Nuclear RNase P: a 385-nucleotide RNA sequence from Lentithecium fluviatile.
The base pairs follow the family's consensus structure, which is taken from published work.
NCBI's taxonomy places the organism under Eukaryota, saccharomyceta, dothideomyceta, Massarineae, Lentithecium fluviatile.
Rfam links the family to the GO terms ribonuclease P complex, tRNA processing and ribonuclease P activity.
A reference for the family is Frank and Pace (1998), "Ribonuclease P: unity and diversity in a tRNA processing ribozyme", Annu Rev Biochem.
RNA sequence: GCCUCUCCAACGCUGCGUUUCUUUGCUCACACACAGACACCGGACCCCGUUCGGCUCGUCUUCCCCAUGCAAAUGAGAAAUUCGGAGUAAUCUUCGCCUACUGCUGCCACCUCGCUCCGGCGAGCCCUGGCACGACUGCCCGUAAGGGCCUGGCGUGACUCACGUCUGCAUUCGGCAUCAGAAAAUCCAGGGCCCGGGAAACCUUGCGCUGCUCCUGAAAGGGAGUGUGUGUUUAGGUGGACUGCUGUCCCUAUGGAAGUCGGUGCGAAGAUUGUGUGCUCUCGCGAGAGAGUGACAUCGUAGUACAAUACGCGGCGUACUUUACCUCGACUAGCUUCGGCGAAAGAGGGAGGGUAUCAUUCGAUUCUGAUUACUCUGGCGAGGC
Numbered sequence: 001g002c003c004u005c006u007c008c009a010a011c012g013c014u015g016c017g018u019u020u021c022u023u024u025g026c027u028c029a030c031a032c033a034c035a036g037a038c039a040c041c042g043g044a045c046c047c048c049g050u051u052c053g054g055c056u057c058g059u060c061u062u063c064c065c066c067a068u069g070c071a072a073a074u075g076a077g078a079a080a081u082u083c084g085g086a087g088u089a090a091u092c093u094u095c096g097c098c099u100a101c102u103g104c105u106g107c108c109a110c111c112u113c114g115c116u117c118c119g120g121c122g123a124g125c126c127c128u129g130g131c132a133c134g135a136c137u138g139c140c141c142g143u144a145a146g147g148g149c150c151u152g153g154c155g156u157g158a159c160u161c162a163c164g165u166c167u168g169c170a171u172u173c174g175g176c177a178u179c180a181g182a183a184a185a186u187c188c189a190g191g192g193c194c195c196g197g198g199a200a201a202c203c204u205u206g207c208g209c210u211g212c213u214c215c216u217g218a219a220a221g222g223g224a225g226u227g228u229g230u231g232u233u234u235a236g237g238u239g240g241a242c243u244g245c246u247g248u249c250c251c252u253a254u255g256g257a258a259g260u261c262g263g264u265g266c267g268a269a270g271a272u273u274g275u276g277u278g279c280u281c282u283c284g285c286g287a288g289a290g291a292g293u294g295a296c297a298u299c300g301u302a303g304u305a306c307a308a309u310a311c312g313c314g315g316c317g318u319a320c321u322u323u324a325c326c327u328c329g330a331c332u333a334g335c336u337u338c339g340g341c342g343a344a345a346g347a348g349g350g351a352g353g354g355u356a357u358c359a360u361u362c363g364a365u366u367c368u369g370a371u372u373a374c375u376c377u378g379g380c381g382a383g384g385c
Stems, first nucleotide, its partner, number of pairs: 001385004007379003012316007022073004036060003083369005093269004138149004152166005172263005190252003317357007